[Rfam]
RNA sequence: GCCGAUAAAAGGCAAACCUGUCGAAAGGCAGGGGCGCAAAGCCAUGGGCCUACGGCUCCAUUGAUGAUGGAGCUACGGCUGCCAGGUUGCCGGC
Numbered sequence: 001g002c003c004g005a006u007a008a009a010a011g012g013c014a015a016a017c018c019u020g021u022c023g024a025a026a027g028g029c030a031g032g033g034g035c036g037c038a039a040a041g042c043c044a045u046g047g048g049c050c051u052a053c054g055g056c057u058c059c060a061u062u063g064a065u066g067a068u069g070g071a072g073c074u075a076c077g078g079c080u081g082c083c084a085g086g087u088u089g090c091c092g093g094c
Stems, first nucleotide, its partner, number of pairs: 012037002017032006040088004045084003048079003055073007
This 94-nucleotide RNA from Thermosediminibacter oceani belongs to the Rfam family "c-di-GMP-I riboswitch aptamer". It scores 78 bits against the family's covariance model. Gene Ontology term of the family: cyclic-di-GMP binding. GEMM was predicted in a large-scale screen for bacterial structured RNA regulatory elements. NCBI's taxonomy places the organism under Bacteria, Bacillati, Bacillota, Thermosediminibacter, Thermosediminibacter oceani.